Shown here is an 80-nucleotide RNA sequence, a member of the family "Plastid-psbM 3UTR RNA". By type it is a cis-regulatory element. Rfam's curators write: Plastid psbM is a non-coding RNA (ncRNA) recognised in plastids. It was found in the three prime untranslated region (3UTR) of psbM gene, its 3UTR location suggests a role in transcript maturation.
RNA sequence: GUAAGAGAGUAUGGUAAGAAAGAAAUUUCUUUCUUACCAUACUCUCUAUUAGUGUUAUAGUAGUGUAUAAAGUUGUACUU
Numbered sequence: 001g002u003a004a005g006a007g008a009g010u011a012u013g014g015u016a017a018g019a020a021a022g023a024a025a026u027u028u029c030u031u032u033c034u035u036a037c038c039a040u041a042c043u044c045u046c047u048a049u050u051a052g053u054g055u056u057a058u059a060g061u062a063g064u065g066u067a068u069a070a071a072g073u074u075g076u077a078c079u080u
Stems, first nucleotide, its partner, number of pairs: 005046011017035001018033006